[Rfam]
RNA: Small nucleolar RNA SNORD116
RNA sequence: UGAUCGAUGAUGACUCCCACAAAAACAUUCCUUGGAAGUGGAACAAAAUGAGUGAAAACUCUAUAAAAAAAAAAAAAGAAAAAAAUAUGUUA
Numbered sequence: 001u002g003a004u005c006g007a008u009g010a011u012g013a014c015u016c017c018c019a020c021a022a023a024a025a026c027a028u029u030c031c032u033u034g035g036a037a038g039u040g041g042a043a044c045a046a047a048a049u050g051a052g053u054g055a056a057a058a059c060u061c062u063a064u065a066a067a068a069a070a071a072a073a074a075a076a077a078g079a080a081a082a083a084a085a086u087a088u089g090u091u092a
Stems, first nucleotide, its partner, number of pairs: 001092004026054005032046003